[Rfam]
RNA sequence: AUUAAUCUUCGGGGCAGGGUGUAAUUCCCGACCGACGGUAAUGGUACAAUGCUACCUUAGUCCGUGACCUACAUAUUGAAUAUGUAGUUGACACAGUGAAAUUCUGUGACCGACAGUUAAAGUCUGGAUGGGAGAAGAUUUAA
Number, nucleotide and partner (000 for none) at each position: 001a000002u000003u000004a140005a139006u138007c137008u136009u135010c134011g000012g000013g000014g000015c000016a000017g029018g028019g027020u000021g000022u000023a000024a000025u000026u000027c019028c018029c017030g000031a123032c122033c112034g111035a065036c064037g063038g062039u000040a000041a000042u000043g000044g000045u000046a000047c000048a000049a000050u000051g000052c000053u000054a000055c000056c000057u000058u000059a000060g110061u109062c038063c037064g036065u035066g000067a000068c000069c087070u086071a000072c000073a000074u000075a000076u000077u000078g000079a000080a000081u000082a000083u000084g000085u000086a070087g069088u000089u000090g000091a000092c108093a107094c106095a105096g104097u000098g000099a000100a000101a000102u000103u000104c096105u095106g094107u093108g092109a061110c060111c034112g033113a000114c126115a125116g124117u000118u000119a000120a000121a000122g032123u031124c116125u115126g114127g000128a000129u000130g000131g000132g000133a000134g010135a009136a008137g007138a006139u005140u004141u000142a000143a000
Shown here is a 143-nucleotide RNA sequence from Leuconostoc fallax, a member of the family "FMN riboswitch aptamer (RFN element)". It scores 119 bits against the family's covariance model. The base pairs follow the family's consensus structure, which is taken from published work.